[Rfam]
Rfam assigns this 162-nucleotide RNA sequence from Sodalis sp. Fse to the family "FMN riboswitch aptamer (RFN element)".
RNA sequence: GAUUAUUCUCAGGGCGGGGUGCCAUUCCCCACCGGCGGUUAACCUGUGUAAAUUAUUACAUAGAAAGCCCGCAAGCGCUCAGAUUAACGUGUCGAUUUGAGGUUAGCAGAUCCGGUGUAAUUCCGGAGCCGACGGUGAUAGUCCGGAUGGGAGAGAGUAACG
Number, nucleotide and partner (000 for none) at each position: 001g000002a000003u160004u159005a158006u157007u156008c155009u154010c153011a000012g000013g000014g000015c000016g000017g029018g028019g027020u000021g000022c000023c000024a000025u000026u000027c019028c018029c017030c000031a142032c141033c131034g130035g072036c071037g070038g069039u000040u000041a000042a000043c000044c000045u000046g000047u000048g000049u000050a000051a000052a000053u000054u000055a000056u000057u000058a000059c000060a000061u000062a000063g000064a000065a000066a000067g129068c128069c038070c037071g036072c035073a000074a000075g107076c106077g000078c000079u000080c000081a000082g000083a000084u000085u000086a000087a000088c000089g000090u000091g000092u000093c000094g000095a000096u000097u000098u000099g000100a000101g000102g000103u000104u000105a000106g076107c075108a000109g000110a000111u127112c126113c125114g124115g123116u000117g000118u000119a000120a000121u000122u000123c115124c114125g113126g112127a111128g068129c067130c034131g033132a000133c145134g144135g143136u000137g000138a000139u000140a000141g032142u031143c135144c134145g133146g000147a000148u000149g000150g000151g000152a000153g010154a009155g008156a007157g006158u005159a004160a003161c000162g000
The base pairs follow the family's consensus structure, which is taken from published work. Its family is annotated with FMN binding in the Gene Ontology. The RFN element is a highly conserved domain that is found frequently in the 5'-untranslated regions of prokaryotic mRNAs that encode for flavin mononucleotide (FMN) biosynthesis and transport proteins. This element is a metabolite-dependent riboswitch that directly binds FMN in the absence of proteins. In Bacillus subtilis, the riboswitch most likely controls gene expression by causing premature transcription termination within the 5' untranslated region of the ribDEAHT operon and precluding access to the ribosome-binding site of ypaA mRNA.The FMN riboswitch structure, reported in present an FMN-bound six-stem junction, adopts a butterfly-like scaffold, stapled together by opposingly directed but nearly identically folded peripheral domains. The source organism's lineage runs through Bacteria, Pseudomonadati, Gammaproteobacteria, Enterobacterales and Sodalis.